[Rfam]
Nucleotides: 105
Stems, first nucleotide, its partner, number of pairs: 006093005012053003016048001017028004035047004060085003066079004
Number, partner (000 for none) and nucleotide at each position: 001000a002000a003000u004000c005000g006093u007092u008091c009090c010089g011000a012053g013052g014051g015000g016048u017028g018027c019026u020025c021000g022000c023000a024000a025020g026019g027018g028017c029000u030000g031000a032000g033000a034000u035047g036046g037045c038044u039000g040000a041000u042000g043000a044038g045037g046036c047035c048016g049000a050000a051014c052013c053012c054000g055000u056000c057000g058000a059000a060085c061084c062083u063000g064000a065000u066079c067078c068077g069076g070000g071000u072000c073000a074000u075000a076069c077068c078067g079066g080000c081000g082000g083062a084061g085060g086000g087000a088000c089010u090009g091008g092007a093006a094000c095000g096000c097000g098000g099000g100000u101000c102000g103000g104000g105000c

The record is a 105-nucleotide sequence from Allobosea spartocytisi, which matches "TPP riboswitch aptamer (THI element)" in Rfam. The organism belongs to Allobosea, within Bacteria. Vitamin B(1) in its active form thiamin pyrophosphate (TPP) is an essential coenzyme that is synthesised by coupling of pyrimidine and thiazole moieties in bacteria. The match comes from Rfam's covariance-model search (69 bits).